Shown here is a 48-nucleotide RNA sequence from Microtetraspora glauca, a member of the family "L31-Actinobacteria ribosomal protein leader". Taxonomically the source falls in Microtetraspora (Bacteria, Bacillati, Actinomycetes, Streptosporangiaceae). The sequence is in the family's curated seed alignment. The family's consensus secondary structure is taken from published work. Rfam classes the family as a cis-regulatory leader.

[Rfam]
RNA sequence: UCGGCCCCGGUUCACGUCCGCCGCAACCCGCGGCGACGACCCGGUGCC
Numbered sequence: 001u002c003g004g005c006c007c008c009g010g011u012u013c014a015c016g017u018c019c020g021c022c023g024c025a026a027c028c029c030g031c032g033g034c035g036a037c038g039a040c041c042c043g044g045u046g047c048c
Stems, first nucleotide, its partner, number of pairs: 003048003007044004015038004020034004